The family of this 175-nucleotide RNA from Tannerella sp. oral taxon 808 is "Group II catalytic intron D1-D4-3". Group II introns are found in rRNA, tRNA and mRNA of organelles in fungi, plants and protists, and also in mRNA in bacteria. Taxonomically the source falls in Tannerella (Bacteria, Bacteroidota, Bacteroidales, Tannerellaceae). It scores 73 bits against the family's covariance model.
RNA sequence: UCGGGUAAGAACCGGGAGAGAAGAAGCAAUAGCGAAAUCGUGGCCCUAGACGAACAGGAACCUGAUACGAAGGCGCAUCCCGGGCGGACAAGCUGGCCAAAGGCAGCGAAGUUCCCAAAGGCAACCGUAACCUUGAAAGCGUAAAUCAGGCGAGUAAACGAUGAAAGAUGUAAGA
Numbered sequence: 001u002c003g004g005g006u007a008a009g010a011a012c013c014g015g016g017a018g019a020g021a022a023g024a025a026g027c028a029a030u031a032g033c034g035a036a037a038u039c040g041u042g043g044c045c046c047u048a049g050a051c052g053a054a055c056a057g058g059a060a061c062c063u064g065a066u067a068c069g070a071a072g073g074c075g076c077a078u079c080c081c082g083g084g085c086g087g088a089c090a091a092g093c094u095g096g097c098c099a100a101a102g103g104c105a106g107c108g109a110a111g112u113u114c115c116c117a118a119a120g121g122c123a124a125c126c127g128u129a130a131c132c133u134u135g136a137a138a139g140c141g142u143a144a145a146u147c148a149g150g151c152g153a154g155u156a157a158a159c160g161a162u163g164a165a166a167g168a169u170g171u172a173a174g175a
Base pairs, nucleotide, nucleotide: 001016002015004013005012006011027174029171033167037162038161039160040159041158043155044154046152049151061150062149063148064147065146066145073142074141075140080135082133083132084131086114087113088112089111092107093106094105095104